[Rfam]
This 126-nucleotide RNA sequence from Peromyscus maniculatus belongs to the Rfam family "Small nucleolar RNA SNORA55". Pairs were carried over by alignment from the consensus structure, which was predicted with PFOLD. ACA55 is a member of the H/ACA class of snoRNA that guide the sites of modification of uridines to pseudouridines. The organism belongs to Peromyscus maniculatus, within Eukaryota. It scores 50 bits against the family's covariance model.
RNA sequence: GCAUUGAAUCUCUUCCAUUUCUGCUGGUCUGAGACAGACAGUGCUACCUCAUGAGUAGAGGACAACUUUAUCAGUUGUUCUCCACUUACUUGCCUUGGGGCCUGUCUCCACAGCUCUGCCACACCU
Numbered sequence: 001g002c003a004u005u006g007a008a009u010c011u012c013u014u015c016c017a018u019u020u021c022u023g024c025u026g027g028u029c030u031g032a033g034a035c036a037g038a039c040a041g042u043g044c045u046a047c048c049u050c051a052u053g054a055g056u057a058g059a060g061g062a063c064a065a066c067u068u069u070a071u072c073a074g075u076u077g078u079u080c081u082c083c084a085c086u087u088a089c090u091u092g093c094c095u096u097g098g099g100g101c102c103u104g105u106c107u108c109c110a111c112a113g114c115u116c117u118g119c120c121a122c123a124c125c126u
Stems, first nucleotide, its partner, number of pairs: 001044005013033003017030001020027002055119006070105002074101002082098003